[Rfam]
RNA sequence: UGGCUGUAGCUAUAGAAAGAAGUGGGAAGUCAACUGGUUGGCAUGCUCUAAUAUCUGUUGAGCAUUCCACUUACCGAACUUCGCAUAUUU
Numbered sequence: 001u002g003g004c005u006g007u008a009g010c011u012a013u014a015g016a017a018a019g020a021a022g023u024g025g026g027a028a029g030u031c032a033a034c035u036g037g038u039u040g041g042c043a044u045g046c047u048c049u050a051a052u053a054u055c056u057g058u059u060g061a062g063c064a065u066u067c068c069a070c071u072u073a074c075c076g077a078a079c080u081u082c083g084c085a086u087a088u089u090u
Stems, first nucleotide, its partner, number of pairs: 024084001026082005036071003040067002045063004